[Rfam]
Rfam assigns this 182-nucleotide RNA from Shewanella fodinae to the family "FMN riboswitch aptamer (RFN element)".
RNA sequence: CGGUAUUCUCAGGGCGGGGUGUAAUUCCCCACCGGUGGUAAAUCGCCCAAACAGCGAAAGCCCACGAGCGCCUGAUGUAAUGUCAGGGUCAGCAGAUCUGGUGUCCUCACCACAUGUGACUAUUCCAGAGCCGACGGUGUUGCUAGCAGUAGCUGGCUCAGUCCGGAUGAAAGAGGAUAUGG
Numbered sequence: 001c002g003g004u005a006u007u008c009u010c011a012g013g014g015c016g017g018g019g020u021g022u023a024a025u026u027c028c029c030c031a032c033c034g035g036u037g038g039u040a041a042a043u044c045g046c047c048c049a050a051a052c053a054g055c056g057a058a059a060g061c062c063c064a065c066g067a068g069c070g071c072c073u074g075a076u077g078u079a080a081u082g083u084c085a086g087g088g089u090c091a092g093c094a095g096a097u098c099u100g101g102u103g104u105c106c107u108c109a110c111c112a113c114a115u116g117u118g119a120c121u122a123u124u125c126c127a128g129a130g131c132c133g134a135c136g137g138u139g140u141u142g143c144u145a146g147c148a149g150u151a152g153c154u155g156g157c158u159c160a161g162u163c164c165g166g167a168u169g170a171a172a173g174a175g176g177a178u179a180u181g182g
Stems, first nucleotide, its partner, number of pairs: 003180008017029003033133002035065004060131002068093002097129005135165003
Notes
The organism belongs to Shewanella, within Bacteria. The base pairs follow the family's consensus structure, which is taken from published work. The match comes from Rfam's covariance-model search (88 bits).